[Rfam]
RNA: Makes More Granules Regulator RNA (mmgR)
RNA sequence: GGGAAGGGCCUUUCAGGCAUCCUCUCCUAAAAACUUUCAGGCCGGUCCCCAAGGAUCGGCCCUUUUUUUGCUUUGC
Numbered sequence: 001g002g003g004a005a006g007g008g009c010c011u012u013u014c015a016g017g018c019a020u021c022c023u024c025u026c027c028u029a030a031a032a033a034c035u036u037u038c039a040g041g042c043c044g045g046u047c048c049c050c051a052a053g054g055a056u057c058g059g060c061c062c063u064u065u066u067u068u069u070g071c072u073u074u075g076c
Base pairs, nucleotide, nucleotide: 008018009017010016011015040061041060042059043058044057045056046055047054048053